[Rfam]
RNA sequence: UAAACAGAUCGGCCUAGUCUCAGAAAUGAGAGCGGAGGAACCAAUUUUUUGGGGUUAAUUCUACUUUGUAGAAGGGAUGAGAUUUUCUCUUUCGCCAUCCUACCCGUCAGCUAACUUCGUCGGCUAAAGCGAGGGAGGUC
Numbered sequence: 001u002a003a004a005c006a007g008a009u010c011g012g013c014c015u016a017g018u019c020u021c022a023g024a025a026a027u028g029a030g031a032g033c034g035g036a037g038g039a040a041c042c043a044a045u046u047u048u049u050u051g052g053g054g055u056u057a058a059u060u061c062u063a064c065u066u067u068g069u070a071g072a073a074g075g076g077a078u079g080a081g082a083u084u085u086u087c088u089c090u091u092u093c094g095c096c097a098u099c100c101u102a103c104c105c106g107u108c109a110g111c112u113a114a115c116u117u118c119g120u121c122g123g124c125u126a127a128a129g130c131g132a133g134g135g136a137g138g139u140c
Stems, first nucleotide, its partner, number of pairs: 011125004018031003032120006042051002052105003060072004075100004